[Rfam]
RNA sequence: ACACAGGGAAGGAGGUGGUCCGCGAAAUUGAUAGCUUCAUGGACAUGUGAGGUGGCUACGCGCUAGCUGCAUGGCUCGGAAGAGCUAGCGAACUUACGCGCGCUGGCGAAUUCCCCGUAGCCACCCGGCCCCCGAGCAUCCCGGUCUGUCCAACCAGGAGCAUUGCUCGGGGGCCGCUCCAU
Numbered sequence: 001a002c003a004c005a006g007g008g009a010a011g012g013a014g015g016u017g018g019u020c021c022g023c024g025a026a027a028u029u030g031a032u033a034g035c036u037u038c039a040u041g042g043a044c045a046u047g048u049g050a051g052g053u054g055g056c057u058a059c060g061c062g063c064u065a066g067c068u069g070c071a072u073g074g075c076u077c078g079g080a081a082g083a084g085c086u087a088g089c090g091a092a093c094u095u096a097c098g099c100g101c102g103c104u105g106g107c108g109a110a111u112u113c114c115c116c117g118u119a120g121c122c123a124c125c126c127g128g129c130c131c132c133c134g135a136g137c138a139u140c141c142c143g144g145u146c147u148g149u150c151c152a153a154c155c156a157g158g159a160g161c162a163u164u165g166c167u168c169g170g171g172g173g174c175c176g177c178u179c180c181a182u
Stems, first nucleotide, its partner, number of pairs: 015059005061108007069101002072098001074095001126176013140158002143155003
Shown here is a 182-nucleotide sequence from Mycobacterium sherrisii, a member of the family "Actinobacteria sRNA Ms_IGR-5". The source organism's lineage runs through Bacteria, Bacillati, Actinomycetota, Mycobacteriales and Mycobacterium simiae complex. The pairing is the family consensus, mapped onto this sequence. A search with the family's covariance model found it, with a score of 175 bits.